[Rfam]
Nucleotides: 084
Base pairs, nucleotide, nucleotide: 002081003080004079007076008075009074010073011072012071013070014069016067017066018065019064024056025055026054027053028052029051030050034042
Number, partner (000 for none) and nucleotide at each position: 001000u002081g003080u004079u005000g006000g007076c008075a009074g010073g011072u012071g013070c014069u015000c016067u017066g018065a019064c020000u021000u022000c023000u024056u025055u026054g027053c028052a029051c030050u031000a032000c033000u034042g035000u036000g037000g038000c039000a040000c041000a042034u043000g044000g045000u046000u047000a048000g049000u050030a051029g052028u053027g054026c055025a056024a057000u058000a059000g060000u061000a062000u063000u064019g065018u066017c067016a068000a069014a070013g071012c072011a073010u074009u075008u076007g077000a078000a079004a080003a081002c082000u083000g084000c
The record is an 84-nucleotide sequence from Menidia menidia, which matches "mir-301 microRNA precursor family" in Rfam. Taxonomically the source falls in Menidia (Eukaryota, Actinopterygii, Actinopteri, Neoteleostei). A search with the family's covariance model found it, with a score of 83 bits. Pairs were carried over by alignment from the consensus structure, which was predicted with WAR.